[Rfam]
RNA sequence: CAUCCAUGCUAGGGGUGCUUGCACUAACAGGCUGAGAUUACACCCUUAACACCUGAGACUGGGUAAUACCAGCGAAGGGAAGCUGUUUAUUGAGGGA
Numbered sequence: 001c002a003u004c005c006a007u008g009c010u011a012g013g014g015g016u017g018c019u020u021g022c023a024c025u026a027a028c029a030g031g032c033u034g035a036g037a038u039u040a041c042a043c044c045c046u047u048a049a050c051a052c053c054u055g056a057g058a059c060u061g062g063g064u065a066a067u068a069c070c071a072g073c074g075a076a077g078g079g080a081a082g083c084u085g086u087u088u089a090u091u092g093a094g095g096g097a
Stems, first nucleotide, its partner, number of pairs: 008083003011046004016040001017032005052078003059072004
RNA: TPP riboswitch aptamer (THI element)
Organism: Nostoc sp. PCC 7120 = FACHB-418